The record is a 262-nucleotide RNA sequence from Roseburia sp. CAG:45, which matches "Bacterial large signal recognition particle RNA" in Rfam.
[Rfam]
RNA sequence: CCGAGCAGCCGGGGUGGCAGCGGUGCCCUGUACCAGCAAUCCGCUAUAGCUGGGGUGAUAUCCUGUCUCGGGUUUGAAAUUGUAAAGCAGCCCUGAAUAAGUGGCGUUGAUGUCUGGGUCUUACGCAACAGGAAUCUGUGAACCGGGUCAGGUCAGGAAUGAAGCAGCCCUAAGCGGAAGCUCCUGUGUGCCGUAAGGUCGCCUGGACUGAGUUGGCUGUUCAGGUAACGUUUGCAACGAGAAUUCAAAACAGGAUGCUCGG
Numbered sequence: 001c002c003g004a005g006c007a008g009c010c011g012g013g014g015u016g017g018c019a020g021c022g023g024u025g026c027c028c029u030g031u032a033c034c035a036g037c038a039a040u041c042c043g044c045u046a047u048a049g050c051u052g053g054g055g056u057g058a059u060a061u062c063c064u065g066u067c068u069c070g071g072g073u074u075u076g077a078a079a080u081u082g083u084a085a086a087g088c089a090g091c092c093c094u095g096a097a098u099a100a101g102u103g104g105c106g107u108u109g110a111u112g113u114c115u116g117g118g119u120c121u122u123a124c125g126c127a128a129c130a131g132g133a134a135u136c137u138g139u140g141a142a143c144c145g146g147g148u149c150a151g152g153u154c155a156g157g158a159a160u161g162a163a164g165c166a167g168c169c170c171u172a173a174g175c176g177g178a179a180g181c182u183c184c185u186g187u188g189u190g191c192c193g194u195a196a197g198g199u200c201g202c203c204u205g206g207a208c209u210g211a212g213u214u215g216g217c218u219g220u221u222c223a224g225g226u227a228a229c230g231u232u233u234g235c236a237a238c239g240a241g242a243a244u245u246c247a248a249a250a251c252a253g254g255a256u257g258c259u260c261g262g
Stems, first nucleotide, its partner, number of pairs: 001262006008056003011029006018022001033053005062254005068248001070246006080237007093224006101217002103214003112208008120197006126188002129186005135178005145170004153162003
Annotation
A search with the family's covariance model found it, with a score of 189 bits. For this family Rfam cites "SRPDB: Signal Recognition Particle Database" (Rosenblad et al., Nucleic Acids Res, 2003). The signal recognition particle (SRP) is a universally conserved ribonucleoprotein involved in the co-translational targeting of proteins to membranes. NCBI's taxonomy places the organism under Bacteria, Bacillati, Lachnospirales, Lachnospiraceae, Roseburia.